The record is a 90-nucleotide RNA from Bacillus taeanensis, which matches "c-di-GMP-I riboswitch aptamer" in Rfam. The source organism's lineage runs through Bacteria, Bacillota, Caryophanales, Bacillaceae and Bacillus. GEMM was predicted in a large-scale screen for bacterial structured RNA regulatory elements. Rfam links the family to the GO term cyclic-di-GMP binding.
[Rfam]
RNA sequence: GUACGCUAAGGGCAAAAUUGCUGAAAGGCAAUGACGCAAAGCUAGAGGGGCUUCAUCGGCGCAUUUCCGAUAUGCCAGCCAGCUACUGAC
Dot-bracket structure: ...........((...((((((....))))))...))..((((...(((((....((((.......))))...)))..))))))......